RNA sequence: ACAGUACAAACUGAGCAGGCGAUGAACUUUAAAAAAGUUCGUGGGGCUGGGCCUAAAAGGCAACAGGAUGGUUAUAUACCUGUGGGACAGUU
Numbered sequence: 001a002c003a004g005u006a007c008a009a010a011c012u013g014a015g016c017a018g019g020c021g022a023u024g025a026a027c028u029u030u031a032a033a034a035a036a037g038u039u040c041g042u043g044g045g046g047c048u049g050g051g052c053c054u055a056a057a058a059g060g061c062a063a064c065a066g067g068a069u070g071g072u073u074a075u076a077u078a079c080c081u082g083u084g085g086g087a088c089a090g091u092u
Stems, first nucleotide, its partner, number of pairs: 010091004016086001018048003022042006051061004063083005
RNA: NiCo (Nickel/Cobalt) riboswitch aptamer
Organism: Clostridium estertheticum